The family of this 75-nucleotide sequence from Streptomyces bingchenggensis is "ASpks TB sRNA". A search with the family's covariance model found it, with a score of 81 bits.

RNA sequence: CUUCACCGAACCCAGCAACAGCGGACGAUCCGCCUCCCGAUCCUGCCCGUACGUGGCCAACAACGCCUGCGCCUC
Numbered sequence: 001c002u003u004c005a006c007c008g009a010a011c012c013c014a015g016c017a018a019c020a021g022c023g024g025a026c027g028a029u030c031c032g033c034c035u036c037c038c039g040a041u042c043c044u045g046c047c048c049g050u051a052c053g054u055g056g057c058c059a060a061c062a063a064c065g066c067c068u069g070c071g072c073c074u075c
Stems, first nucleotide, its partner, number of pairs: 016024001031071003038065002044059002047056003

Background:
Pairs were carried over by alignment from the consensus structure, which is taken from published work.